[Rfam]
RNA sequence: CUCUUAUCCAGAGUAGGUGGAGGGACAGCCCCUGUGAAGCCCAGCAACCGUCACCAUUAACGGUGAAAAGGUGCUAACCUGAUGCAAGGUGAGAUAGCCUUGAACGAUAAGAG
Numbered sequence: 001c002u003c004u005u006a007u008c009c010a011g012a013g014u015a016g017g018u019g020g021a022g023g024g025a026c027a028g029c030c031c032c033u034g035u036g037a038a039g040c041c042c043a044g045c046a047a048c049c050g051u052c053a054c055c056a057u058u059a060a061c062g063g064u065g066a067a068a069a070g071g072u073g074c075u076a077a078c079c080u081g082a083u084g085c086a087a088g089g090u091g092a093g094a095u096a097g098c099c100u101u102g103a104a105c106g107a108u109a110a111g112a113g
Stems, first nucleotide, its partner, number of pairs: 001113008013042001016041003022032003026084002043075004048071002051066003085102006

Rfam assigns this 113-nucleotide RNA from Pontibacillus marinus to the family "SAM riboswitch aptamer (S box leader)". The base pairs follow the family's consensus structure, which is taken from published work. NCBI's taxonomy places the organism under Bacteria, Bacillati, Caryophanales, Pontibacillus, Pontibacillus marinus.